[Rfam]
RNA sequence: UCCUGUUACUAAGUACUAGUGCCGCAGGAGCUCUCAUAAUUCUCCUGCUGCUCAAGUGCUUAUCAAUGGGU
Numbered sequence: 001u002c003c004u005g006u007u008a009c010u011a012a013g014u015a016c017u018a019g020u021g022c023c024g025c026a027g028g029a030g031c032u033c034u035c036a037u038a039a040u041u042c043u044c045c046u047g048c049u050g051c052u053c054a055a056g057u058g059c060u061u062a063u064c065a066a067u068g069g070g071u
Stems, first nucleotide, its partner, number of pairs: 002070006010062008019053001024048007
Rfam assigns this 71-nucleotide RNA from Agrilus planipennis to the family "mir-252 microRNA precursor family". On this family, see Ruby et al., Cell 2006: "Large-scale sequencing reveals 21U-RNAs and additional microRNAs and endogenous siRNAs in C. elegans". The family is grouped with related families in Rfam's "mir-252 microRNA precursor family". Taxonomically the source falls in Agrilus (Eukaryota, Protostomia, Altocrustacea, Endopterygota).